[Rfam]
This 82-nucleotide RNA from Pogona vitticeps belongs to the Rfam family "Small nucleolar RNA SNORD45".
RNA sequence: GGUCAAUGAUGAGAUCAGACAUUUUUGUAUGAAUUUAAAAUUGAUAUAUUAUCAUUUAGCUCUAGAAUUACUCUGAGACCCA
Numbered sequence: 001g002g003u004c005a006a007u008g009a010u011g012a013g014a015u016c017a018g019a020c021a022u023u024u025u026u027g028u029a030u031g032a033a034u035u036u037a038a039a040a041u042u043g044a045u046a047u048a049u050u051a052u053c054a055u056u057u058a059g060c061u062c063u064a065g066a067a068u069u070a071c072u073c074u075g076a077g078a079c080c081c082a
Stems, first nucleotide, its partner, number of pairs: 001080004
Dot-bracket structure: ((((........................................................................))))..
Rfam classes the family as a C/D-box small nucleolar RNA. The family's consensus secondary structure was predicted with PFOLD. The match comes from Rfam's covariance-model search (50 bits). Its family is annotated with nucleolus and RNA processing in the Gene Ontology.